[Rfam]
RNA: Bacterial RNase P class A
Organism: Spirosoma sp. KCTC 42546
RNA sequence: AAUACGAGUUGGCUUAUCGCGUCUGAGCAAUUGGGCGAGGAAAGUCCGGGCAGCAUAGGGCACCCUACUUCCUAACGGGAAGGAGGAUGGUUGGGAACGACCAUUCGACAGCCAGUGUCACAGAAAAUAUACCGCCCGUACUUAAUGUAUAAUUGACAAUGUAAAAUGAAUAAUGAAGGCUAUUGCUGGGAUUAUUCAUUAACCAUUAUACAUUAUUCAUUAAGUAGUGGUAAGGGUGAAAAGGUGGGGUAAGAGCCUACCGCCCGACGGGCGACCGGCGGGGCAGGAUAAACCUUAGGGGCUGAAAGACCAAAUAAGCGUCGGAUGUGGGGCGGCCCGUUCCCGUUUCGGAGAAAUCCGGAUGCCGACGCGGGUAGGUCGAACGAGGUGGCCGGUGACGACCAUCCCAGAUAAAUGAUAAGCCAUCUGAUGAGCCGAGAGGCUUACUUGGAGGACAGAACCCGGCUUAUAGACUCGUAUUGGGA
Dot-bracket structure: ((((((((((((((((((.(((((((....)))))))....[[[.[[[[[((((........((((((((((.....)))))(.(((((((((....)))))))))..)((...(((((............(((((..(((((((((......................................................................)))))))))..)))..)).......((((((.......))))))(((((.(((....))).)))).)..)))..)))))))))))))...((((......((((((................................((....))..)))))).....))))......(((((.((....)).)))))..........))))))).....................................]]]]]]]].).))))))))))....